[Rfam]
RNA sequence: UUUAAGGAUAGAGGCGCAAAAACCAUUAGUACGCAAUGCGAGGAUCAUGGGAAAUCCAAUGACUGUUGUGGAAAGGGGAAUUUGCCGAAGCAGACAGGGUCUCAUGCCCUGGAAGCUGGUUCUGCUAUUGAAUAAAUACAGGACUGUCAUAUAGGUUAACUAUAUGGAGGGCUAUCUUACGC
Number, nucleotide and partner (000 for none) at each position: 001u000002u000003u000004a000005a000006g177007g176008a175009u174010a173011g172012a000013g000014g000015c000016g085017c084018a083019a082020a081021a000022a000023c078024c077025a000026u000027u000028a000029g000030u000031a000032c070033g069034c068035a067036a066037u065038g064039c000040g000041a000042g000043g000044a000045u000046c000047a000048u000049g000050g000051g000052a000053a000054a000055u000056c000057c000058a000059a000060u000061g000062a000063c000064u038065g037066u036067u035068g034069u033070g032071g000072a000073a000074a000075g000076g000077g024078g023079a000080a000081u020082u019083u018084g017085c016086c000087g000088a000089a117090g116091c115092a000093g000094a000095c111096a110097g109098g108099g107100u106101c000102u000103c000104a000105u000106g100107c099108c098109c097110u096111g095112g000113a000114a000115g091116c090117u089118g145119g144120u143121u142122c141123u140124g139125c000126u138127a137128u136129u135130g000131a000132a000133u000134a000135a129136a128137u127138a126139c124140a123141g122142g121143a120144c119145u118146g000147u167148c166149a165150u164151a163152u162153a161154g000155g000156u000157u000158a000159a000160c000161u153162a152163u151164a150165u149166g148167g147168a000169g000170g000171g000172c011173u010174a009175u008176c007177u006178u000179a000180c000181g000182c000
The record is a 182-nucleotide sequence from Lentibacillus populi, which matches "Lysine riboswitch aptamer" in Rfam. Taxonomically the source falls in Lentibacillus (Bacteria, Bacillati, Bacillota, Bacilli).